[Rfam]
RNA sequence: AGAAUUUGUGUGUGUUUGUUCAAAUAAUGGACAAAGGCCAACUAGACAGGUACAAAAAUAAAUCAUUUCUUGCAACCCAGAUUUCAUUGCUCAGUAUGAGUUUUGAUAUAUACAGAUAUAUACA
Numbered sequence: 001a002g003a004a005u006u007u008g009u010g011u012g013u014g015u016u017u018g019u020u021c022a023a024a025u026a027a028u029g030g031a032c033a034a035a036g037g038c039c040a041a042c043u044a045g046a047c048a049g050g051u052a053c054a055a056a057a058a059u060a061a062a063u064c065a066u067u068u069c070u071u072g073c074a075a076c077c078c079a080g081a082u083u084u085c086a087u088u089g090c091u092c093a094g095u096a097u098g099a100g101u102u103u104u105g106a107u108a109u110a111u112a113c114a115g116a117u118a119u120a121u122a123c124a
Stems, first nucleotide, its partner, number of pairs: 002053001004051006011044001012038002015035005063122001070115003078105004083100005
RNA: Small nucleolar RNA SNORA40
Organism: Neotoma lepida